A member of the RNA family "6S-Flavo RNA" from Nonlabens tegetincola, 111 nucleotides long. The match comes from Rfam's covariance-model search (94 bits). Lineage of the source: Bacteria > Pseudomonadati > Flavobacteriia > Flavobacteriales > Nonlabens. Pairs were carried over by alignment from the consensus structure, which is taken from published work.

RNA sequence: ACUCAACACUAUAAUUCUUUAAAAAAGGUGAGUCGUGGUUGUAAAAGCAUGCUGGUCAUAAUGCCAGACCCUUGAUCAAUCAGUUAGCCUUAAACUUUAUUUAAGGAGUUC
Numbered sequence: 001a002c003u004c005a006a007c008a009c010u011a012u013a014a015u016u017c018u019u020u021a022a023a024a025a026a027g028g029u030g031a032g033u034c035g036u037g038g039u040u041g042u043a044a045a046a047g048c049a050u051g052c053u054g055g056u057c058a059u060a061a062u063g064c065c066a067g068a069c070c071c072u073u074g075a076u077c078a079a080u081c082a083g084u085u086a087g088c089c090u091u092a093a094a095c096u097u098u099a100u101u102u103a104a105g106g107a108g109u110u111c
Stems, first nucleotide, its partner, number of pairs: 025091005036082005045073003052067004